[Rfam]
RNA sequence: ACCCUUGUGUUUUUGAUGAACUGGUGAACAAACACAUAAAAGACAGGUAAGCAAAAUCCAAUUUUGCAACCAAAACUCAUGGUUCAGCAUGAGUUUUUUUAACAGAUAAGGAGGAAUAUG
Numbered sequence: 001a002c003c004c005u006u007g008u009g010u011u012u013u014u015g016a017u018g019a020a021c022u023g024g025u026g027a028a029c030a031a032a033c034a035c036a037u038a039a040a041a042g043a044c045a046g047g048u049a050a051g052c053a054a055a056a057u058c059c060a061a062u063u064u065u066g067c068a069a070c071c072a073a074a075a076c077u078c079a080u081g082g083u084u085c086a087g088c089a090u091g092a093g094u095u096u097u098u099u100u101a102a103c104a105g106a107u108a109a110g111g112a113g114g115a116a117u118a119u120g
Base pairs, nucleotide, nucleotide: 001048002047003046004042006040009035010034012032013031014030015029021026056117057116059114062111063110064109065108066107072097073096074095075094076093077092078091079090080089
RNA: Small nucleolar RNA SNORA40
Organism: Mus spicilegus